The record is a 114-nucleotide RNA sequence from Neogobius melanostomus, which matches "Potassium channel RNA editing signal" in Rfam. A reference for the family is Bhalla et al. (2004), "Control of human potassium channel inactivation by editing of a small mRNA hairpin", Nat Struct Mol Biol.
[Rfam]
RNA sequence: GUUGGCUAUGGGGACAUGUACCCUGUCACCAUCGGGGGAAAGAUUGUGGGCUCACUAUGCGCUAUAGCUGGAGUACUGACAAUUGCCCUGCCGGUACCUGUCAUUGUGUCCAAC
Numbered sequence: 001g002u003u004g005g006c007u008a009u010g011g012g013g014a015c016a017u018g019u020a021c022c023c024u025g026u027c028a029c030c031a032u033c034g035g036g037g038g039a040a041a042g043a044u045u046g047u048g049g050g051c052u053c054a055c056u057a058u059g060c061g062c063u064a065u066a067g068c069u070g071g072a073g074u075a076c077u078g079a080c081a082a083u084u085g086c087c088c089u090g091c092c093g094g095u096a097c098c099u100g101u102c103a104u105u106g107u108g109u110c111c112a113a114c
Base pairs, nucleotide, nucleotide: 001114002113004111005110007108008107009106010105011104013102014101015100016099018097019096020095021094037077038076040074049063050062051061
Its family is annotated with adenosine to inosine editing in the Gene Ontology.